[Rfam]
RNA sequence: AGAAGACGGGCAAGUCUCUUACGACCAGCUCCCUUUGAACCCCCCAGGACGGGAACGUAGCAAGGGCAGAAGGUUGUAGCGGUGCGAUAGGAAUCGCUUGUCCACCC
Numbered sequence: 001a002g003a004a005g006a007c008g009g010g011c012a013a014g015u016c017u018c019u020u021a022c023g024a025c026c027a028g029c030u031c032c033c034u035u036u037g038a039a040c041c042c043c044c045c046a047g048g049a050c051g052g053g054a055a056c057g058u059a060g061c062a063a064g065g066g067c068a069g070a071a072g073g074u075u076g077u078a079g080c081g082g083u084g085c086g087a088u089a090g091g092a093a094u095c096g097c098u099u100g101u102c103c104a105c106c107c
Base pairs, nucleotide, nucleotide: 008103009102010101011100012099013098014097015096017092018091019090020089021088022086023085024083025082
Dot-bracket structure: .......((((((((.(((((((((........................................................)).)).)))))...))))))))....

A member of the RNA family "Bacteroidales small SRP" from Prevotella melaninogenica, 107 nucleotides long. It is annotated as a non-coding RNA gene. The base pairs follow the family's consensus structure, which is taken from published work. The literature on the family includes a 2020 paper in Nat Commun by Ryan et al., "A high-resolution transcriptome map identifies small RNA regulation of metabolism in the gut microbe Bacteroides thetaiotaomicron". Gene Ontology terms of the family: SRP-dependent cotranslational protein targeting to membrane, signal sequence recognition and signal recognition particle, plasma membrane targeting. The source organism's lineage runs through Bacteria, Pseudomonadati, Bacteroidales, Prevotella and Prevotella melaninogenica.